[Rfam]
RNA sequence: UUGGCUCUGCUUCAACCGAAGCCUGACGUUAUGCGUCAGAGAUUCAUGUAGGUUGGGUGGGGCCGG
Number, nucleotide and partner (000 for none) at each position: 001u066002u065003g064004g063005c062006u061007c060008u059009g058010c057011u000012u056013c055014a054015a053016c052017c051018g000019a000020a000021g000022c000023c039024u038025g037026a036027c035028g034029u033030u000031a000032u000033g029034c028035g027036u026037c025038a024039g023040a000041g000042a000043u000044u000045c000046a000047u000048g000049u000050a000051g017052g016053u015054u014055g013056g012057g010058u009059g008060g007061g006062g005063c004064c003065g002066g001
RNA: DUF3800-VIII RNA